[Rfam]
Nucleotides: 134
Base pairs, nucleotide, nucleotide: 003058004057005056006055009050010049019045020044021043023041024040026037027036063133068128069127071125072124073123083114084113085112086111088109089108091106092105097102
Number, partner (000 for none) and nucleotide at each position: 001000g002000u003058g004057c005056a006055u007000c008000c009050u010049u011000a012000g013000a014000a015000a016000c017000c018000c019045u020044c021043c022000a023041g024040g025000u026037g027036c028000u029000g030000u031000u032000u033000g034000u035000a036027g037026c038000u039000u040024c041023u042000g043021g044020g045019a046000c047000a048000a049010g050009a051000a052000a053000g054000g055006a056005u057004g058003c059000a060000a061000a062000a063133a064000c065000a066000a067000a068128c069127c070000u071125a072124g073123a074000g075000u076000u077000a078000u079000c080000c081000a082000a083114a084113g085112c086111u087000a088109a089108g090000g091106g092105c093000u094000u095000u096000g097102u098000u099000c100000c101000a102097g103000u104000g105092g106091c107000u108089c109088u110000c111086g112085g113084c114083u115000a116000u117000u118000u119000c120000u121000c122000u123073u124072c125071u126000c127069g128068g129000a130000c131000a132000u133063u134000a
Rfam assigns this 134-nucleotide RNA sequence from Megalops atlanticus to the family "Small nucleolar RNA SNORA14".
ACA14 is a member of the H/ACA class of snoRNA that guide the sites of modification of uridines to pseudouridines.
It scores 54 bits against the family's covariance model.
The family's RNA type in Rfam is H/ACA-box small nucleolar RNA.
Lineage of the source: Eukaryota > Deuterostomia > Actinopteri > Teleostei > Megalops.